Background:
This 74-nucleotide RNA sequence from Anopheles sinensis belongs to the Rfam family "mir-124 microRNA precursor family". Gene Ontology terms of the family: RISC complex and miRNA-mediated post-transcriptional gene silencing. It scores 64 bits against the family's covariance model.
Nucleotides: 074
Stems, first nucleotide, its partner, number of pairs: 003072003009066008018057002023052003027049004
Number, partner (000 for none) and nucleotide at each position: 001000u002000u003072c004071u005070c006000c007000u008000g009066g010065u011064g012063u013062u014061c015060a016059c017000u018057g019056u020000a021000g022000g023052c024051c025050u026000g027049u028048a029047u030046g031000u032000u033000c034000u035000u036000u037000u038000a039000c040000g041000g042000a043000u044000u045000u046030c047029a048028u049027a050025a051024g052023g053000c054000a055000c056019g057018c058000g059016g060015u061014g062013a063012a064011u065010g066009c067000c068000a069000a070005g071004a072003g073000c074000g